Source information:
A member of the RNA family "PyrR binding site" from Lactobacillus iners, 110 nucleotides long. The family's consensus secondary structure is taken from published work. The source organism's lineage runs through Bacteria, Bacillati, Lactobacillaceae, Lactobacillus and Lactobacillus iners. The family's RNA type in Rfam is cis-regulatory element.
RNA sequence: AAUACCUUUAAAUUGGUCCUGUGAGGCCAAGAAGGAGCUUUGCUUUUAUAUUAUGAUAAUCACCGUUGAAUGCAAAACCAUCUUGGACUCAGUCUAAGAUGGUUUUUUAG
Number, nucleotide and partner (000 for none) at each position: 001a000002a000003u037004a000005c035006c034007u033008u032009u031010a000011a000012a000013u030014u029015g028016g027017u026018c025019c000020u000021g000022u000023g000024a000025g018026g017027c016028c015029a014030a013031g009032a008033a007034g006035g005036a000037g003038c000039u000040u000041u000042g073043c072044u000045u070046u069047u068048a067049u000050a066051u065052u000053a000054u062055g061056a000057u000058a000059a000060u000061c055062a054063c000064c000065g051066u050067u048068g047069a046070a045071u000072g043073c042074a106075a105076a104077a103078c102079c101080a100081u099082c098083u097084u096085g095086g094087a093088c000089u000090c000091a000092g000093u087094c086095u085096a084097a083098g082099a081100u080101g079102g078103u077104u076105u075106u074107u000108u000109a000110g000